RNA sequence: AUGCAAGCGCAUGACUGGCGAUGAAAGGUGGAAGACCACCGGGAAGUGCGCAGGGUUUGAGUGCAUCCAAGGAUGGUGUGAGUCAGCCCAAAGCCGCUCGCCUGGGCACUUUGA
Numbered sequence: 001a002u003g004c005a006a007g008c009g010c011a012u013g014a015c016u017g018g019c020g021a022u023g024a025a026a027g028g029u030g031g032a033a034g035a036c037c038a039c040c041g042g043g044a045a046g047u048g049c050g051c052a053g054g055g056u057u058u059g060a061g062u063g064c065a066u067c068c069a070a071g072g073a074u075g076g077u078g079u080g081a082g083u084c085a086g087c088c089c090a091a092a093g094c095c096g097c098u099c100g101c102c103u104g105g106g107c108a109c110u111u112u113g114a
Base pairs, nucleotide, nucleotide: 007051008050009049010048011047012046015043016042017102018101019100020099021098028039029038030037031036093107094106095105
Notes: Rfam assigns this 114-nucleotide RNA sequence to the family "ZMP/ZTP riboswitch aptamer (pfl RNA motif)". Rfam's curators put it in the seed alignment.